[Rfam]
RNA sequence: CUGCGAUGAUGGCAACAUUUUUCGUCAACAGCAGCUCCGCUCUGGGGCAAGUGGUGACUCCUGUGGGCUGAGCAG
Numbered sequence: 001c002u003g004c005g006a007u008g009a010u011g012g013c014a015a016c017a018u019u020u021u022u023c024g025u026c027a028a029c030a031g032c033a034g035c036u037c038c039g040c041u042c043u044g045g046g047g048c049a050a051g052u053g054g055u056g057a058c059u060c061c062u063g064u065g066g067g068c069u070g071a072g073c074a075g
Stems, first nucleotide, its partner, number of pairs: 002074003008026004
This 75-nucleotide RNA from Rhinopomastus cyanomelas belongs to the Rfam family "Small nucleolar RNA SNORD56". The family's RNA type in Rfam is C/D-box small nucleolar RNA. Rfam 15.1 lists 796 matches to the family in 432 species. The source organism's lineage runs through Eukaryota, Dipnotetrapodomorpha, Sauria, Coelurosauria and Rhinopomastus. On this family, see Galardi et al., Mol Cell Biol 2002: "Purified box C/D snoRNPs are able to reproduce site-specific 2'-O-methylation of target RNA in vitro". The family's consensus secondary structure was predicted with PFOLD.